A member of the RNA family "Glycine riboswitch aptamer" from Planococcus sp. PAMC 21323, 92 nucleotides long. Rfam describes the family as follows. This family represents the bacterial glycine riboswitch. Glycine riboswitches usually consist of two metabolite-binding aptamers domains with similar structures in tandem. The aptamers cooperatively bind glycine to regulate the expression of downstream genes. In Bacillus subtilis, this riboswitch is found upstream of the gcvT operon which controls glycine degradation. The source organism's lineage runs through Bacteria, Bacillota, Caryophanales, Caryophanaceae and Planococcus.

[Rfam]
RNA sequence: AUGAUUGUACGAGGAGAGAAUGCGAAAGCGUCGCCGAAGGAGCAAAUAACAAAAGUUAUGAAUCUCUCAGGCAAAAAGACUCGUACAGGACG
Numbered sequence: 001a002u003g004a005u006u007g008u009a010c011g012a013g014g015a016g017a018g019a020a021u022g023c024g025a026a027a028g029c030g031u032c033g034c035c036g037a038a039g040g041a042g043c044a045a046a047u048a049a050c051a052a053a054a055g056u057u058a059u060g061a062a063u064c065u066c067u068c069a070g071g072c073a074a075a076a077a078g079a080c081u082c083g084u085a086c087a088g089g090a091c092g
Base pairs, nucleotide, nucleotide: 006087007086008085009084010083011082012081013080020031021030022029023028033072034071035070036068037067040066041065042064046059047058